[Rfam]
RNA sequence: CGGUGGGGUAGAGGCGCGGUAUUUAAGAGUAGGCUGUGUGAGGAUGACAACGAAGAUCACAGAUGAAAGGGAAUACUGCCGAAGCAAAUAAACUUGUCGAUCGUUUAUUGUGCUGGGGUUACUCUGAAUAAGAGUAAAACUGUCAUUUUGAGGGAUACCUUCAUAAUGAGGAGCUACAGAUCGU
Numbered sequence: 001c002g003g004u005g006g007g008g009u010a011g012a013g014g015c016g017c018g019g020u021a022u023u024u025a026a027g028a029g030u031a032g033g034c035u036g037u038g039u040g041a042g043g044a045u046g047a048c049a050a051c052g053a054a055g056a057u058c059a060c061a062g063a064u065g066a067a068a069g070g071g072a073a074u075a076c077u078g079c080c081g082a083a084g085c086a087a088a089u090a091a092a093c094u095u096g097u098c099g100a101u102c103g104u105u106u107a108u109u110g111u112g113c114u115g116g117g118g119u120u121a122c123u124c125u126g127a128a129u130a131a132g133a134g135u136a137a138a139a140c141u142g143u144c145a146u147u148u149u150g151a152g153g154g155a156u157a158c159c160u161u162c163a164u165a166a167u168g169a170g171g172a173g174c175u176a177c178a179g180a181u182c183g184u
Base pairs, nucleotide, nucleotide: 008177009176010175011174016079017078018077019076020075021074022073023072024071032064034062035061036060037059038058083114084113085112086111087109088108089107090106091105092104093103115141116140119137120136121135122134123133124132125131143169144168145167146166147165149163150162151161
Description: The record is a 184-nucleotide RNA from Bacillus sp. MRMR6, which matches "Lysine riboswitch aptamer" in Rfam. Rfam describes the family as follows. Riboswitches are metabolite binding domains within certain messenger RNAs that serve as precision sensors for their corresponding targets. Taxonomically the source falls in Bacillus (Bacteria, Bacillati, Caryophanales, Bacillaceae).